[Rfam]
RNA sequence: UUCUUAUCGAGAGAGGCGGAGGGACUGGCCCGAUGAAGCCCGGCAACCACCCCGCUCCCGUGCAGGGAACGGCCGGACCGAACGAUCCGGACGAGGGGAAAGGUGCCAAUUCCUGCAGGACCCUCGGGUCCUGAGAGAUGAGAA
Dot-bracket structure: ((((((((....(.(((...(((.[.[[)))......))))((((.((.(((...........................................)))...))))))...(]].]((((((......))))))..)))))))))
This 144-nucleotide sequence from Planifilum fulgidum belongs to the Rfam family "SAM riboswitch aptamer (S box leader)". Gene Ontology term of the family: regulation of gene expression. About the family: The SAM riboswitch is found upstream of a number of genes which code for proteins involved in methionine or cysteine biosynthesis in Gram-positive bacteria. Its Rfam clan is "SAM clan". NCBI's taxonomy places the organism under Bacteria, Bacillati, Caryophanales, Thermoactinomycetaceae, Planifilum.